[Rfam]
RNA sequence: UUGCCGGCAUCAAAUUGAGCUGGACUUUAAUUGAUAAAAUAAUAUAUUUCGACCGGUAUCCUUAUUAUGGAACUGGAUUGGAGG
Number, nucleotide and partner (000 for none) at each position: 001u000002u000003g025004c023005c022006g021007g020008c019009a000010u018011c017012a000013a000014a000015u000016u000017g011018a010019g008020c007021u006022g005023g004024a000025c003026u000027u000028u000029a000030a000031u000032u000033g000034a000035u000036a000037a000038a000039a000040u000041a000042a000043u000044a000045u000046a000047u000048u000049u000050c080051g079052a078053c076054c075055g074056g073057u072058a000059u071060c070061c069062u000063u000064a000065u000066u000067a000068u000069g061070g060071a059072a057073c056074u055075g054076g053077a000078u052079u051080g050081g000082a000083g000084g000
The family of this 84-nucleotide sequence from Thermoanaerobacterium sp. RBIITD is "pan motif".